[Rfam]
RNA sequence: UAAAUAUCAGUUCCAGUGUAAACUAUAUUUA
Numbered sequence: 001u002a003a004a005u006a007u008c009a010g011u012u013c014c015a016g017u018g019u020a021a022a023c024u025a026u027a028u029u030u031a
Stems, first nucleotide, its partner, number of pairs: 001031007009024004014018001
This 31-nucleotide RNA sequence from Notothenia coriiceps belongs to the Rfam family "Iron response element II". Rfam links the family to the GO term response to iron ion. The base pairs follow the family's consensus structure, which is taken from published work. NCBI's taxonomy places the organism under Eukaryota, Craniata, Euteleostomi, Eurypterygia, Notothenia. A reference for the family is Kohler et al. (1995), "Succinate dehydrogenase b mRNA of Drosophila melanogaster has a functional iron-responsive element in its 5'-untranslated region", J Biol Chem. Rfam describes the family as follows. IRE, TFRC, SLC40A1, SDHB, SLC11A2, CDC42BPA, ACO2, ALAS2_H.SAPIENS, CDC14A, EPAS1, ALAS2, qoxD, Hao1, NDUFS1, transferrin, Aconitate.